[Rfam]
RNA: U1 spliceosomal RNA
Organism: Denticeps clupeoides
RNA sequence: UUACUUACCUGGCAGGUGAGAUGCUGUGAUCAAGAAGGCGGUUCACCCAGGGCGGGGCUCAGCCAUUGCACUCCGGCUGUGCCGACCCCUGCGAAUUCCCCAAAUGUGGGAAUCUCGACUGCAUAAUUGCUGGUUCAAAUUC
Numbered sequence: 001u002u003a004c005u006u007a008c009c010u011g012g013c014a015g016g017u018g019a020g021a022u023g024c025u026g027u028g029a030u031c032a033a034g035a036a037g038g039c040g041g042u043u044c045a046c047c048c049a050g051g052g053c054g055g056g057g058c059u060c061a062g063c064c065a066u067u068g069c070a071c072u073c074c075g076g077c078u079g080u081g082c083c084g085a086c087c088c089c090u091g092c093g094a095a096u097u098c099c100c101c102a103a104a105u106g107u108g109g110g111a112a113u114c115u116c117g118a119c120u121g122c123a124u125a126a127u128u129g130c131u132g133g134u135u136c137a138a139a140u141u142c
Base pairs, nucleotide, nucleotide: 012122013121014120015119016048018046020044021043023042024041025040026039027038049090050089051088052087054086056083057082058081060079061078062077063076064075092117093116094115095113096112097111099109100108